[Rfam]
Rfam assigns this 59-nucleotide RNA from Ornithinimicrobium avium to the family "msiK RNA".
RNA sequence: GGGCGGGUUCCUUUACGACGGAUCGUCCGGCACGUACCUGCCGGUGAAGGAGAGUUUCC
Numbered sequence: 001g002g003g004c005g006g007g008u009u010c011c012u013u014u015a016c017g018a019c020g021g022a023u024c025g026u027c028c029g030g031c032a033c034g035u036a037c038c039u040g041c042c043g044g045u046g047a048a049g050g051a052g053a054g055u056u057u058c059c
Stems, first nucleotide, its partner, number of pairs: 009051007027044006

The family's RNA type in Rfam is cis-regulatory element. Lineage of the source: Bacteria > Actinomycetota > Actinomycetes > Micrococcales > Ornithinimicrobium. The family's consensus secondary structure is taken from published work.